Shown here is a 137-nucleotide RNA sequence from Pelagicoccus mobilis, a member of the family "Y RNA-like". From the family's description: In Deinococcus radiodurans Rsr is tethered via Y RNA to the exoribonuclease PNPase and channels single-stranded RNA into the PNPase cavity. Rsr and Y RNA enhance degradation of structured RNAs by PNPase. This role could be conserved, as Rsr and ncRNAs called YrlA and YrlB (Y RNA like) also associate with PNPase in an evolutionary distant bacterium Salmonella Typhimurium.
[Rfam]
RNA sequence: CGUGCGAAUGCCGAAAUGACUACAUGCUUUAGGUGCAGCGGGUCGUGGGUUCGAGUCCCACCGCGCCGACCAUUUACCGGCGCGUAGCUCAGUGGUAGAGCAGCUUAAAUUGUCAUUUCAAAAUUAGUCGCACGAUC
Number, nucleotide and partner (000 for none) at each position: 001c000002g133003u132004g131005c130006g129007a128008a000009u000010g000011c000012c000013g119014a118015a117016a116017u115018g114019a113020c000021u000022a000023c000024a000025u000026g000027c000028u000029u000030u000031a000032g000033g000034u000035g000036c000037a000038g104039c103040g000041g000042g000043u000044c000045g061046u060047g059048g058049g057050u000051u000052c095053g000054a000055g000056u000057c049058c048059c047060a046061c045062c084063g083064c082065g081066c080067c079068g000069a000070c000071c000072a000073u000074u000075u000076a000077c000078c000079g067080g066081c065082g064083c063084g062085u000086a000087g101088c100089u099090c098091a000092g000093u000094g000095g052096u000097a000098g090099a089100g088101c087102a000103g039104c038105u000106u000107a000108a000109a000110u000111u000112g000113u019114c018115a017116u016117u015118u014119c013120a000121a000122a000123a000124u000125u000126a000127g000128u007129c006130g005131c004132a003133c002134g000135a000136u000137c000
The base pairs follow the family's consensus structure, which is taken from published work.
The organism belongs to Pelagicoccus, within Bacteria.